[Rfam]
RNA sequence: CCCGCCACUGCAGCAGUUUAUUGCCUAACUGCUUACAGUCCAGUGGUGAGCUAAGAGCAAACUACAUCUUAGGAAACAGGUACAUUCUGGGUGUGAGUGAACCUGUGCCAAAAGAUUGUAAACAAGA
Dot-bracket structure: ....((((((........((((....)).)).........))))))................((((((((.((...(((((...(((.......)))...)))))..))..)))).)))).......
Rfam assigns this 127-nucleotide RNA sequence from Xenopus laevis to the family "Small nucleolar RNA SNORA65". Taxonomically the source falls in Xenopus (Eukaryota, Eumetazoa, Euteleostomi, Sarcopterygii). A reference for the family is Huttenhofer et al. (2001), "RNomics: an experimental approach that identifies 201 candidates for novel, small, non-messenger RNAs in mouse", EMBO J. U65 belongs to the H/ACA class of snoRNAs which are thought to guide the sites of modification of uridines to pseudouridines. The family has 14 seed sequences and 1,089 matches in Rfam 15.1.